[Rfam]
RNA sequence: UUCCCUUCCGCCUUUCGUCUCGACUAACGCUGUUUUAGUAAGCAUCAGUCUUGUCGAAUGGUGGGUGGGCG
Number, nucleotide and partner (000 for none) at each position: 001u000002u000003c069004c068005c067006u000007u065008c064009c063010g062011c061012c060013u000014u058015u057016c056017g055018u000019c053020u000021c000022g050023a049024c048025u047026a000027a045028c000029g043030c042031u000032g000033u000034u000035u000036u000037a000038g000039u000040a000041a000042g030043c029044a000045u027046c000047a025048g024049u023050c022051u000052u000053g019054u000055c017056g016057a015058a014059u000060g012061g011062u010063g009064g008065g007066u000067g005068g004069g003070c000071g000
Background
Shown here is a 71-nucleotide RNA from Papilio xuthus, a member of the family "mir-2766 microRNA precursor family". Taxonomically the source falls in Papilio (Eukaryota, Panarthropoda, Arthropoda, Insecta).